[Rfam]
RNA sequence: GAUUUAUAAAGAAGAGGCUAGAGAAUGGGCUCAGCGAACCUCUGGCAACCUACCCCAAGCGCAACCGGGGCAAGGUGCUAACUCCCACCUAAUUCAUUAGGGAAUAUAAACU
Numbered sequence: 001g002a003u004u005u006a007u008a009a010a011g012a013a014g015a016g017g018c019u020a021g022a023g024a025a026u027g028g029g030c031u032c033a034g035c036g037a038a039c040c041u042c043u044g045g046c047a048a049c050c051u052a053c054c055c056c057a058a059g060c061g062c063a064a065c066c067g068g069g070g071c072a073a074g075g076u077g078c079u080a081a082c083u084c085c086c087a088c089c090u091a092a093u094u095c096a097u098u099a100g101g102g103a104a105u106a107u108a109a110a111c112u
Stems, first nucleotide, its partner, number of pairs: 001112001003110006013043005021032003026087004044079004049075002053069002083104001088101005
A member of the RNA family "SAM riboswitch aptamer (S box leader)" from Rhabdobacter roseus, 112 nucleotides long. Taxonomically the source falls in Rhabdobacter (Bacteria, Pseudomonadati, Cytophagia, Cytophagales).